The record is a 72-nucleotide RNA sequence from Rodentolepis nana, which matches "HDV ribozyme from F. prausnitzii" in Rfam.

[Rfam]
RNA sequence: AGGGUGUGCGAUGGACUCACCUCCACGUGGUGCACCCUGGGCAACGUAUACUCGUACGGCCAAAAGGUAUAU
Numbered sequence: 001a002g003g004g005u006g007u008g009c010g011a012u013g014g015a016c017u018c019a020c021c022u023c024c025a026c027g028u029g030g031u032g033c034a035c036c037c038u039g040g041g042c043a044a045c046g047u048a049u050a051c052u053c054g055u056a057c058g059g060c061c062a063a064a065a066g067g068u069a070u071a072u
Base pairs, nucleotide, nucleotide: 001038002037003036004035005034006033007032019031020030021029045058046057047056048055049054
The organism belongs to Rodentolepis, within Eukaryota.